[Rfam]
RNA: Bacterial RNase P class A
Organism: Gordonia amarae
RNA sequence: CGAGUCGGCCGGGCGGCCGCGGCGCGCGGAACGACCGGUCACCGGAGACGCCGAGCGCCGAGGAAAGUCCGGACUCCACGGAGCAGGGUGGUUGUUAACGGCAACCCGGGGUGACCCGCGGGACAGUGCCACAGAAAACAGACCGCCGACGGCAUCUCGGUGCCGCCGGUAAGGGUGAAACGGUGCGGUAAGAGCGCACCAGCGACGCGGGUGACCGCGCCGGCUUGGUAAACCCCACCCGGAGCAAGGCUGAAGUCCGCACCGACAGGUGCGGGUGCGCAGGUGUUCGAGGGCUGCUCGCCCGAGCCUGCGGGUGGGCCGCUUGAGGUACCCGGCGACGGUGUGCCCAGAUGGAUGGUCGCCGCCCACGCCUCGCGUGGGCACAGGAUCCGGCUUACACGCCGACUCGUUCG
Numbered sequence: 001c002g003a004g005u006c007g008g009c010c011g012g013g014c015g016g017c018c019g020c021g022g023c024g025c026g027c028g029g030a031a032c033g034a035c036c037g038g039u040c041a042c043c044g045g046a047g048a049c050g051c052c053g054a055g056c057g058c059c060g061a062g063g064a065a066a067g068u069c070c071g072g073a074c075u076c077c078a079c080g081g082a083g084c085a086g087g088g089u090g091g092u093u094g095u096u097a098a099c100g101g102c103a104a105c106c107c108g109g110g111g112u113g114a115c116c117c118g119c120g121g122g123a124c125a126g127u128g129c130c131a132c133a134g135a136a137a138a139c140a141g142a143c144c145g146c147c148g149a150c151g152g153c154a155u156c157u158c159g160g161u162g163c164c165g166c167c168g169g170u171a172a173g174g175g176u177g178a179a180a181c182g183g184u185g186c187g188g189u190a191a192g193a194g195c196g197c198a199c200c201a202g203c204g205a206c207g208c209g210g211g212u213g214a215c216c217g218c219g220c221c222g223g224c225u226u227g228g229u230a231a232a233c234c235c236c237a238c239c240c241g242g243a244g245c246a247a248g249g250c251u252g253a254a255g256u257c258c259g260c261a262c263c264g265a266c267a268g269g270u271g272c273g274g275g276u277g278c279g280c281a282g283g284u285g286u287u288c289g290a291g292g293g294c295u296g297c298u299c300g301c302c303c304g305a306g307c308c309u310g311c312g313g314g315u316g317g318g319c320c321g322c323u324u325g326a327g328g329u330a331c332c333c334g335g336c337g338a339c340g341g342u343g344u345g346c347c348c349a350g351a352u353g354g355a356u357g358g359u360c361g362c363c364g365c366c367c368a369c370g371c372c373u374c375g376c377g378u379g380g381g382c383a384c385a386g387g388a389u390c391c392g393g394c395u396u397a398c399a400c401g402c403c404g405a406c407u408c409g410u411u412c413g
Base pairs, nucleotide, nucleotide: 001409002408003407004406005405006404007403008402009401011398012363013362014361015360016359017358018357020060021059022058023057024056025055027053028052065396066395067394069393070392071391072390073389074244075243076242077241081299082298083297084296086240087239088238089237090236091105092104093103094102095101106120107118108117109116110115121235122234126233127232128229129228130227143174144173145170146169147168148167150165151164152163153162154161155160182200183199184198185197186196187195202224203222204221206219207218208217209216210215248320249319250318251317279311280310281309282308283307284306291303292302293301294300327346332341333340334339